[Rfam]
This 407-nucleotide RNA sequence from Marmota monax belongs to the Rfam family "Small Cajal body-specific RNA 2". It is annotated as a small Cajal body RNA. A reference for the family is Tycowski et al. (2004), "Guide RNAs with 5' caps and novel box C/D snoRNA-like domains for modification of snRNAs in metazoa", Curr Biol.
RNA sequence: CCUCACGGGAGGGAGAGCGGCCUGGGCUGAGGCGACUGUGUGUUGUGUUGUGUGGAAGGUGCGUGUGGGCCCAGUGAGCGAAUGGACGCUCGAGUGUGUGUGCGUGGAGCGUGCAAGGCGAGUGCGUGUACCCCACCUGCGCCCCUCCCCCCGCCUACACCUUGAUCUUAUUUGAUCGGGUCGUGACCCCAGCCCCGCCGGGCCGCCCCGAAAUGAAAAGCUCUCCUCCUGCGAAGCCCCCUCCUCCGGGCGCUGUGCAGUGAGGCCCUUUGGGCGGCGGCAGCGCCGCGGUCCCUGAGGUCCCGGAGCUGGUCCAAUGGGCCCGGUGCUCAGAAGUGAUGAAUUGAUCAGAUAGACGAGGCCGGGCCUGUCCCGGGCCAGUGAUUAUCGAGGCGAUUCUGAUCUGA
Numbered sequence: 001c002c003u004c005a006c007g008g009g010a011g012g013g014a015g016a017g018c019g020g021c022c023u024g025g026g027c028u029g030a031g032g033c034g035a036c037u038g039u040g041u042g043u044u045g046u047g048u049u050g051u052g053u054g055g056a057a058g059g060u061g062c063g064u065g066u067g068g069g070c071c072c073a074g075u076g077a078g079c080g081a082a083u084g085g086a087c088g089c090u091c092g093a094g095u096g097u098g099u100g101u102g103c104g105u106g107g108a109g110c111g112u113g114c115a116a117g118g119c120g121a122g123u124g125c126g127u128g129u130a131c132c133c134c135a136c137c138u139g140c141g142c143c144c145c146u147c148c149c150c151c152c153g154c155c156u157a158c159a160c161c162u163u164g165a166u167c168u169u170a171u172u173u174g175a176u177c178g179g180g181u182c183g184u185g186a187c188c189c190c191a192g193c194c195c196c197g198c199c200g201g202g203c204c205g206c207c208c209c210g211a212a213a214u215g216a217a218a219a220g221c222u223c224u225c226c227u228c229c230u231g232c233g234a235a236g237c238c239c240c241c242u243c244c245u246c247c248g249g250g251c252g253c254u255g256u257g258c259a260g261u262g263a264g265g266c267c268c269u270u271u272g273g274g275c276g277g278c279g280g281c282a283g284c285g286c287c288g289c290g291g292u293c294c295c296u297g298a299g300g301u302c303c304c305g306g307a308g309c310u311g312g313u314c315c316a317a318u319g320g321g322c323c324c325g326g327u328g329c330u331c332a333g334a335a336g337u338g339a340u341g342a343a344u345u346g347a348u349c350a351g352a353u354a355g356a357c358g359a360g361g362c363c364g365g366g367c368c369u370g371u372c373c374c375g376g377g378c379c380a381g382u383g384a385u386u387a388u389c390g391a392g393g394c395g396a397u398u399c400u401g402a403u404c405u406g407a
Base pairs, nucleotide, nucleotide: 045142046141047140048139049065050064051063052062053061054060076091078089079088080087094131095130096129099126100125101124102123103122105120106119171219172218173217176211177210178209179208182205183204185203188202189201190200192198193197243300244299245298246297248295249294250293252292253291254290257289258288260286261285262284265281266280267279268277269276308327309326310325311324312323313321314320315319331406332405333404334403341399342398343397344396345395346394360379361378362377363376365374366373